[Rfam]
RNA sequence: AUUUCUUUUAACAUAUCAAGAAGUCGAAUUGGCAGUGAAAAAAGAAGCAAGAAGUCGAAAGCCAUCAUUGUCUAGAAUCAAAAUCCAAAAACCCAUACAUUGCUUCUUUCUUCAUUGCCAAUUCGACUUCAUGAUAUGUUAAAAGAAAU
Number, nucleotide and partner (000 for none) at each position: 001a000002u000003u000004u146005c145006u144007u143008u142009u141010a140011a139012c138013a137014u136015a135016u134017c133018a132019a000020g130021a129022a128023g127024u126025c125026g124027a123028a122029u121030u120031g119032g000033c117034a116035g115036u114037g113038a112039a111040a000041a109042a108043a107044g106045a105046a104047g000048c102049a101050a100051g000052a000053a000054g000055u000056c000057g094058a000059a000060a000061g000062c000063c000064a000065u000066c000067a000068u000069u000070g000071u000072c000073u000074a000075g000076a000077a000078u000079c000080a000081a000082a000083a000084u000085c000086c000087a000088a000089a000090a000091a000092c000093c000094c057095a000096u000097a000098c000099a000100u050101u049102g048103c000104u046105u045106c044107u043108u042109u041110c000111u039112u038113c037114a036115u035116u034117g033118c000119c031120a030121a029122u028123u027124c026125g025126a024127c023128u022129u021130c020131a000132u018133g017134a016135u015136a014137u013138g012139u011140u010141a009142a008143a007144a006145g005146a004147a000148a000149u000

Shown here is a 149-nucleotide sequence from Gossypium anomalum, a member of the family "MIR8643 microRNA precursor family".
The family has 2 seed sequences and 522 matches in Rfam 15.1.
The family's consensus secondary structure was predicted with RNAalifold.
Lineage of the source: Eukaryota > Euphyllophyta > malvids > Malvales > Gossypium.
Its family is annotated with miRNA-mediated post-transcriptional gene silencing and RISC complex in the Gene Ontology.